[Rfam]
RNA sequence: AUAUCAUCUGGGAAUGAGGUUCUCCCGAGGUAUAAACCUAAACCGCUUAUUAAAGCUGAUGACUUCUACGACUUU
Dot-bracket structure: .........[[[[..((((((.]]]]..................((((....))))....)))))).........
RNA: Fluoride riboswitch aptamer (crcB RNA motif)